RNA sequence: UGCGUUUUUCGCCCAGGCGGAGCUCGACCGCCGAUUCAAGUCCUGAGAGAGCUCAUCGACGAGCAUCGCGAUACGUUCGGGGUCGAGCCGAUCUGCAAGGUUUUGCAGAUCUCCCCG
Dot-bracket structure: ...............(((((.......))))).............................................(((((.......(.(((((((....))))))).).)))))
Numbered sequence: 001u002g003c004g005u006u007u008u009u010c011g012c013c014c015a016g017g018c019g020g021a022g023c024u025c026g027a028c029c030g031c032c033g034a035u036u037c038a039a040g041u042c043c044u045g046a047g048a049g050a051g052c053u054c055a056u057c058g059a060c061g062a063g064c065a066u067c068g069c070g071a072u073a074c075g076u077u078c079g080g081g082g083u084c085g086a087g088c089c090g091a092u093c094u095g096c097a098a099g100g101u102u103u104u105g106c107a108g109a110u111c112u113c114c115c116c117g
Stems, first nucleotide, its partner, number of pairs: 016032005078117005090111001092109007
A member of the RNA family "ALIL pseudoknot" from Variovorax sp. PAMC 28711, 117 nucleotides long. Taxonomically the source falls in Variovorax (Bacteria, Pseudomonadota, Burkholderiales, Comamonadaceae).